Notes: A member of the RNA family "Group II catalytic intron D1-D4-1" from Xenorhabdus koppenhoeferi, 82 nucleotides long. A search with the family's covariance model found it, with a score of 42 bits. On this family, see Bonen and Vogel, Trends Genet 2001: "The ins and outs of group II introns". Pairs were carried over by alignment from the consensus structure. Taxonomically the source falls in Xenorhabdus (Bacteria, Pseudomonadota, Gammaproteobacteria, Enterobacterales).

RNA sequence: UAUUCAUCGUGAGGUGACAGGAUGGAAUGACGGAAGUCAGACGACGCCGUAGUAGUGAUAACUAACCGAUAUCAUGAAGAGC
Numbered sequence: 001u002a003u004u005c006a007u008c009g010u011g012a013g014g015u016g017a018c019a020g021g022a023u024g025g026a027a028u029g030a031c032g033g034a035a036g037u038c039a040g041a042c043g044a045c046g047c048c049g050u051a052g053u054a055g056u057g058a059u060a061a062c063u064a065a066c067c068g069a070u071a072u073c074a075u076g077a078a079g080a081g082c
Stems, first nucleotide, its partner, number of pairs: 001020001004017005036045003046082002055075006
Dot-bracket structure: (..(((((....)))))..)...............(((....)))((.......((((((.........)))))).....))